[Rfam]
RNA sequence: UUAAACCGAUACCGAGGCAGGCCUAACAGCCUGAGAGGAAAACCUGCAACUGCGGGCGGCCGCACCGAGUGCAUAGCCGACACCUCCCAAGACCUCAACUGCUUUCCGCUCUGGCGCACAGGUAUCGUUCA
Numbered sequence: 001u002u003a004a005a006c007c008g009a010u011a012c013c014g015a016g017g018c019a020g021g022c023c024u025a026a027c028a029g030c031c032u033g034a035g036a037g038g039a040a041a042a043c044c045u046g047c048a049a050c051u052g053c054g055g056g057c058g059g060c061c062g063c064a065c066c067g068a069g070u071g072c073a074u075a076g077c078c079g080a081c082a083c084c085u086c087c088c089a090a091g092a093c094c095u096c097a098a099c100u101g102c103u104u105u106c107c108g109c110u111c112u113g114g115c116g117c118a119c120a121g122g123u124a125u126c127g128u129u130c131a
Stems, first nucleotide, its partner, number of pairs: 002131001004129002007127007018033005035086003043056005057079004062072004
This 131-nucleotide RNA from Dickeya solani belongs to the Rfam family "EFASI RNA". The organism belongs to Dickeya solani, within Bacteria. The base pairs follow the family's consensus structure, which is taken from published work. By type it is a small RNA. The sequence is in the family's curated seed alignment.